[Rfam]
Description: The family of this 137-nucleotide RNA from Lottia gigantea is "U4 spliceosomal RNA". For this family Rfam cites "The uRNA database" (Zwieb, Nucleic Acids Res, 1997). Lineage of the source: Eukaryota > Metazoa > Mollusca > Patellogastropoda > Lottia. The base pairs follow the family's consensus structure, which is taken from published work. It scores 128 bits against the family's covariance model.
RNA sequence: AGCUUUGCGCAGUGGCGGUACCAUAGCCAAUGAGGAAUUUCCGAGGCGUGGUUAUUGCUAGUUGAAAACUAUACCCAAUACCCCGCACUGACGACUUAAUAGUCGGCAGUUGCAAUUUCUGGAAGCUUCUACGGAAG
Numbered sequence: 001a002g003c004u005u006u007g008c009g010c011a012g013u014g015g016c017g018g019u020a021c022c023a024u025a026g027c028c029a030a031u032g033a034g035g036a037a038u039u040u041c042c043g044a045g046g047c048g049u050g051g052u053u054a055u056u057g058c059u060a061g062u063u064g065a066a067a068a069c070u071a072u073a074c075c076c077a078a079u080a081c082c083c084c085g086c087a088c089u090g091a092c093g094a095c096u097u098a099a100u101a102g103u104c105g106g107c108a109g110u111u112g113c114a115a116u117u118u119c120u121g122g123a124a125g126c127u128u129c130u131a132c133g134g135a136a137g
Stems, first nucleotide, its partner, number of pairs: 020052005026047003034042003085113003088109003092105005126137004